[Rfam]
Annotation:
A member of the RNA family "chrB-a RNA" from Sulfitobacter sp. SK012, 78 nucleotides long. A search with the family's covariance model found it, with a score of 66 bits. The family has 163 seed sequences and 347 matches in Rfam 15.1. The family's RNA type in Rfam is cis-regulatory element.
RNA sequence: UCCAUGGGGACAGCGCGAUCGCCCCGUGAGGCUCCGGCCCAAGUAUCGCAUCCUGUUCAAACAAAGGAUGCUGCUAUG
Numbered sequence: 001u002c003c004a005u006g007g008g009g010a011c012a013g014c015g016c017g018a019u020c021g022c023c024c025c026g027u028g029a030g031g032c033u034c035c036g037g038c039c040c041a042a043g044u045a046u047c048g049c050a051u052c053c054u055g056u057u058c059a060a061a062c063a064a065a066g067g068a069u070g071c072u073g074c075u076a077u078g
Stems, first nucleotide, its partner, number of pairs: 005026005048071006